[Rfam]
A member of the RNA family "mir-190 microRNA precursor family" from Rodentolepis nana, 81 nucleotides long. Its family is annotated with RISC complex and miRNA-mediated post-transcriptional gene silencing in the Gene Ontology. For this family Rfam cites "MicroRNA discovery and profiling in human embryonic stem cells by deep sequencing of small RNA libraries" (Bar et al., Stem Cells, 2008). The source organism's lineage runs through Eukaryota, Spiralia, Cestoda, Cyclophyllidea and Rodentolepis. It scores 54 bits against the family's covariance model. The base pairs follow the family's consensus structure, which was predicted with RNAalifold. The family is grouped with related families in Rfam's "mir-50 clan".

RNA sequence: AUAUCAAUGAGAUAUGUUUGGGUUACUUGGUGCUGCCUAUUUAACUUAAACACCAGUGACCGAACAUAUUCCUAUUGUGUG
Numbered sequence: 001a002u003a004u005c006a007a008u009g010a011g012a013u014a015u016g017u018u019u020g021g022g023u024u025a026c027u028u029g030g031u032g033c034u035g036c037c038u039a040u041u042u043a044a045c046u047u048a049a050a051c052a053c054c055a056g057u058g059a060c061c062g063a064a065c066a067u068a069u070u071c072c073u074a075u076u077g078u079g080u081g
Stems, first nucleotide, its partner, number of pairs: 005077005011070011023059004029054004